Shown here is a 130-nucleotide sequence from Spermophilus dauricus, a member of the family "Small nucleolar RNA SNORA51". Rfam links the family to the GO terms nucleolus and RNA processing. By type it is an H/ACA-box small nucleolar RNA. Rfam's curators write: ACA51 is a member of the H/ACA class of snoRNA that guide the sites of modification of uridines to pseudouridines. The family's consensus secondary structure was predicted with PFOLD. It scores 93 bits against the family's covariance model.

RNA sequence: GACCUCCUGGUGCUGGCUGCAGGCUGUGUUCCUCCACCGACUGUGUAGACAGAGGAGGCAGAGGAAGCCUACCCCAAGUGCACCUGCCCGGGCCCUGUGCCUCAUCUAUACUGAGAAUGGGGAGAUAUGG
Numbered sequence: 001g002a003c004c005u006c007c008u009g010g011u012g013c014u015g016g017c018u019g020c021a022g023g024c025u026g027u028g029u030u031c032c033u034c035c036a037c038c039g040a041c042u043g044u045g046u047a048g049a050c051a052g053a054g055g056a057g058g059c060a061g062a063g064g065a066a067g068c069c070u071a072c073c074c075c076a077a078g079u080g081c082a083c084c085u086g087c088c089c090g091g092g093c094c095c096u097g098u099g100c101c102u103c104a105u106c107u108a109u110a111c112u113g114a115g116a117a118u119g120g121g122g123a124g125a126u127a128u129g130g
Stems, first nucleotide, its partner, number of pairs: 003058006020043003026037003072122005086106001090102004